[Rfam]
RNA: Small nucleolar RNA SNORD101
RNA sequence: GACUUGAAUGAUGACUAGAUUGUCGGAUACCCCUACACUCCAACGUAUGAGUGAAAAAAAAGUCUGACAAUC
Numbered sequence: 001g002a003c004u005u006g007a008a009u010g011a012u013g014a015c016u017a018g019a020u021u022g023u024c025g026g027a028u029a030c031c032c033c034u035a036c037a038c039u040c041c042a043a044c045g046u047a048u049g050a051g052u053g054a055a056a057a058a059a060a061a062g063u064c065u066g067a068c069a070a071u072c
Stems, first nucleotide, its partner, number of pairs: 001072002004070003